This 153-nucleotide sequence from Bartonella bovis belongs to the Rfam family "speF leader". Rfam describes the family as follows. This family is a putative regulatory RNA structure that is found upstream of the speF gene encoding ornithine decarboxylase in Agrobacterium tumefaciens and other alpha-proteobacteria. A search with the family's covariance model found it, with a score of 96 bits. Lineage of the source: Bacteria > Pseudomonadati > Alphaproteobacteria > Hyphomicrobiales > Bartonella bovis. The family's RNA type in Rfam is cis-regulatory leader.
[Rfam]
RNA sequence: UUCCGGCUAUUUAAAAAUGCUGGGAUAACUAUAGAGGCACACCUCAUUGCCUUCAGUGCGGAAGUUUUUGUGCAACUCCAAUCAAAAAGGCAGACAAAGUGGAACAAUGCGGUUUUCGCGCUGUUUCUUCAUUGCAUACAAUGCUGAUUUAUC
Numbered sequence: 001u002u003c004c005g006g007c008u009a010u011u012u013a014a015a016a017a018u019g020c021u022g023g024g025a026u027a028a029c030u031a032u033a034g035a036g037g038c039a040c041a042c043c044u045c046a047u048u049g050c051c052u053u054c055a056g057u058g059c060g061g062a063a064g065u066u067u068u069u070g071u072g073c074a075a076c077u078c079c080a081a082u083c084a085a086a087a088a089g090g091c092a093g094a095c096a097a098a099g100u101g102g103a104a105c106a107a108u109g110c111g112g113u114u115u116u117c118g119c120g121c122u123g124u125u126u127c128u129u130c131a132u133u134g135c136a137u138a139c140a141a142u143g144c145u146g147a148u149u150u151a152u153c
Base pairs, nucleotide, nucleotide: 001025002024003023004022005021006020007019036051037050038049039048058132060130082094083093102115103114104113105112